[Rfam]
RNA sequence: UCCUCAUUUCACACGCUCUCUCACCGAUCAGAGAGGCGAGAUAGUGUGUGAAAUGAAGAGU
Number, nucleotide and partner (000 for none) at each position: 001u059002c058003c000004u056005c055006a054007u053008u000009u000010c050011a000012c048013a047014c046015g045016c044017u043018c000019u041020c040021u039022c038023a000024c000025c000026g000027a000028u000029c000030a000031g000032a000033g000034a000035g000036g000037c000038g022039a021040g020041a019042u000043a017044g016045u015046g014047u013048g012049u000050g010051a000052a000053a007054u006055g005056a004057a000058g002059a001060g000061u000
RNA: mir-8364 microRNA precursor family
Organism: Pristionchus pacificus